RNA sequence: UGACCUCGAGGCCGACUAAGAUCGCCACUUCCUGUGGCAACGUCGGCACUAGCACGUCCUGUGCG
Numbered sequence: 001u002g003a004c005c006u007c008g009a010g011g012c013c014g015a016c017u018a019a020g021a022u023c024g025c026c027a028c029u030u031c032c033u034g035u036g037g038c039a040a041c042g043u044c045g046g047c048a049c050u051a052g053c054a055c056g057u058c059c060u061g062u063g064c065g
Base pairs, nucleotide, nucleotide: 011047012046013045014044015043016042024038025037026036027035028034052064053063054062055061
This 65-nucleotide sequence from Peribacillus cavernae belongs to the Rfam family "Bacillaceae-1 RNA".
The match comes from Rfam's covariance-model search (53 bits).
The family's consensus secondary structure is taken from published work.
It is annotated as a small RNA.
The source organism's lineage runs through Bacteria, Bacillati, Bacilli, Bacillaceae and Peribacillus.